Shown here is a 46-nucleotide sequence from Lacticaseibacillus manihotivorans, a member of the family "PreQ1 (pre queuosine) riboswitch aptamer". Rfam describes the family as follows. This family is a bacterial riboswitch that binds to the metabolite preQ1, an intermediate in the biosynthesis of the modified nucleoside queuosine from GTP. One example of this riboswitch is located in the leader of the Bacillus subtilis ykvJKLM (queCDEF) operon which encodes four genes necessary for queuosine production. PreQ1 binding to the riboswitch aptamer is thought to induce premature transcription termination within the leader to down-regulate expression of these genes. A search with the family's covariance model found it, with a score of 47 bits. A reference for the family is Reader et al. (2004), "Identification of four genes necessary for biosynthesis of the modified nucleoside queuosine", J Biol Chem.
[Rfam]
RNA sequence: AACGUCGUGGUUCGUGAUCCAUCCCACGUAAAAAAACUAGGAGGCU
Numbered sequence: 001a002a003c004g005u006c007g008u009g010g011u012u013c014g015u016g017a018u019c020c021a022u023c024c025c026a027c028g029u030a031a032a033a034a035a036a037c038u039a040g041g042a043g044g045c046u
Base pairs, nucleotide, nucleotide: 006028007027008026009025010024015039016038